RNA sequence: ACUGCGAGGUAAACAUCGACCAAUGAAACUGCAUCAAACGCUCAUGCAAUUUCAUUGGUUGAUGAUUUCCUCGCUCA
Dot-bracket structure: ...((((((.((((((((((((((((((.(((((.........))))).))))))))))))))).)))))))))...
Numbered sequence: 001a002c003u004g005c006g007a008g009g010u011a012a013a014c015a016u017c018g019a020c021c022a023a024u025g026a027a028a029c030u031g032c033a034u035c036a037a038a039c040g041c042u043c044a045u046g047c048a049a050u051u052u053c054a055u056u057g058g059u060u061g062a063u064g065a066u067u068u069c070c071u072c073g074c075u076c077a
Stems, first nucleotide, its partner, number of pairs: 004074006011068003014064015030048005

The family of this 77-nucleotide sequence from Plutella xylostella is "mir-8499 microRNA precursor family". The source organism's lineage runs through Eukaryota, Allotriocarida, Neolepidoptera, Heteroneura and Plutella. Pairs were carried over by alignment from the consensus structure, which was predicted with RNAalifold.